This 58-nucleotide RNA from Insolitispirillum peregrinum belongs to the Rfam family "terC RNA". Rfam 15.1 lists 1,112 matches to the family in 772 species. It is annotated as a cis-regulatory element.
RNA sequence: CUCCGGGUCCGGGCCCCUCUGGCGACGACGGCGGUUGUCGUGAUGUCGGACCUUUGCA
Number, nucleotide and partner (000 for none) at each position: 001c000002u000003c000004c000005g000006g052007g051008u050009c049010c048011g047012g046013g000014c000015c000016c000017c000018u000019c000020u000021g000022g041023c040024g039025a038026c037027g036028a035029c034030g000031g000032c000033g000034g029035u028036u027037g026038u025039c024040g023041u022042g000043a000044u000045g000046u012047c011048g010049g009050a008051c007052c006053u000054u000055u000056g000057c000058a000

Pairs were carried over by alignment from the consensus structure, which is taken from published work. Taxonomically the source falls in Insolitispirillum (Bacteria, Pseudomonadota, Rhodospirillales, Novispirillaceae).